RNA sequence: AAGCCAGCCCGUGAGUCUGCUUACCUGAAUGUGCUUCUGCAGAAAUUUAGAGAAAGCUGGCAAUAGCAAAGCCAUGCUAUAAGCCUUAAAGACAUUGAAGUCAUUAAGGUCCCUGAAAAUGGCUACUAAA
Dot-bracket structure: ..(((((........(((((..................))))).............))))).........((((........(((((((.(((......))).))))))).........)))).......

Rfam assigns this 130-nucleotide RNA sequence from Molossus molossus to the family "Small nucleolar RNA SNORA33". ACA33 is a member of the H/ACA class of snoRNA that guide the sites of modification of uridines to pseudouridines. NCBI's taxonomy places the organism under Eukaryota, Deuterostomia, Chordata, Vertebrata, Molossus. The family has 28 seed sequences and 1,176 matches in Rfam 15.1.